RNA sequence: UUCCCGUCACAACGGCUUCCUGGCGUGGCGGACGUACCCAACGGAGCA
Numbered sequence: 001u002u003c004c005c006g007u008c009a010c011a012a013c014g015g016c017u018u019c020c021u022g023g024c025g026u027g028g029c030g031g032a033c034g035u036a037c038c039c040a041a042c043g044g045a046g047c048a
Base pairs, nucleotide, nucleotide: 004031005030006029007028008027009026010025013022014021015047016046017045019044020043
Rfam assigns this 48-nucleotide RNA sequence from Roseivivax jejudonensis to the family "SAM/SAH riboswitch aptamer". The literature on the family includes a 2019 paper in Nucleic Acids Res by Weickhmann et al., "The structure of the SAM/SAH-binding riboswitch". The source organism's lineage runs through Bacteria, Pseudomonadati, Alphaproteobacteria, Roseobacteraceae and Roseivivax.